[Rfam]
RNA: ASpks TB sRNA
Organism: Streptomyces malaysiensis
RNA sequence: UUUCAGUGAGCCCAUCCACAGUGGGUGCUCCCGGUCCUGCCCGUAGGUGGCGAUGAUUGCCUGGGCUUC
Numbered sequence: 001u002u003u004c005a006g007u008g009a010g011c012c013c014a015u016c017c018a019c020a021g022u023g024g025g026u027g028c029u030c031c032c033g034g035u036c037c038u039g040c041c042c043g044u045a046g047g048u049g050g051c052g053a054u055g056a057u058u059g060c061c062u063g064g065g066c067u068u069c
Stems, first nucleotide, its partner, number of pairs: 014026004028065003032059002038053001041050003